[Rfam]
RNA sequence: UGCCUUUAUGUGUUGCCCGUUCAUUUUCAACUAGAUGAAUGUGGUGUCAAAUAAGGCGAACAGUAACUCUUGUAACAGCAUAAACACGGAAAAUACACUAUCUAGUAAUUUCUGUAAUAGGGCUGUGCCAAGAACAUGU
Numbered sequence: 001u002g003c004c005u006u007u008a009u010g011u012g013u014u015g016c017c018c019g020u021u022c023a024u025u026u027u028c029a030a031c032u033a034g035a036u037g038a039a040u041g042u043g044g045u046g047u048c049a050a051a052u053a054a055g056g057c058g059a060a061c062a063g064u065a066a067c068u069c070u071u072g073u074a075a076c077a078g079c080a081u082a083a084a085c086a087c088g089g090a091a092a093a094u095a096c097a098c099u100a101u102c103u104a105g106u107a108a109u110u111u112c113u114g115u116a117a118u119a120g121g122g123c124u125g126u127g128c129c130a131a132g133a134a135c136a137u138g139u
Stems, first nucleotide, its partner, number of pairs: 002057005011049002014046004018041008069132004073127001075126005086115006095106002

The family of this 139-nucleotide RNA sequence from Electrophorus electricus is "Small nucleolar RNA SNORA13". By type it is an H/ACA-box small nucleolar RNA. Rfam describes the family as follows. ACA13 is a member of the H/ACA class of snoRNA that guide the sites of modification of uridines to pseudouridines. The source organism's lineage runs through Eukaryota, Opisthokonta, Metazoa, Clupeocephala and Electrophorus. Clan: SNORA13 clan.